Notes
The family of this 66-nucleotide RNA from Corynebacterium pilosum is "L31-Corynebacteriaceae ribosomal protein leader". Its Rfam clan is "Ribosomal Protein L31 Leader clan". Pairs were carried over by alignment from the consensus structure, which is taken from published work. The sequence is in the family's curated seed alignment.
[Rfam]
RNA sequence: ACUCGGGCACGAUCCCCGGCCACUAUACGUGCCGGAGAACCGACCCGUAGUCUCAAACCUGAGGGA
Numbered sequence: 001a002c003u004c005g006g007g008c009a010c011g012a013u014c015c016c017c018g019g020c021c022a023c024u025a026u027a028c029g030u031g032c033c034g035g036a037g038a039a040c041c042g043a044c045c046c047g048u049a050g051u052c053u054c055a056a057a058c059c060u061g062a063g064g065g066a
Stems, first nucleotide, its partner, number of pairs: 001051003004047004013038002016035004